This 36-nucleotide RNA sequence belongs to the Rfam family "DUF805b RNA".
The family's consensus secondary structure is taken from published work.
RNA sequence: AUGGAGCAUCCCCGAAAAUCCUAAACAGAGUAGGGA
Number, nucleotide and partner (000 for none) at each position: 001a000002u000003g021004g020005a019006g000007c000008a000009u000010c000011c035012c034013c033014g000015a000016a000017a000018a000019u005020c004021c003022u000023a000024a000025a000026c000027a000028g000029a000030g000031u000032a000033g013034g012035g011036a000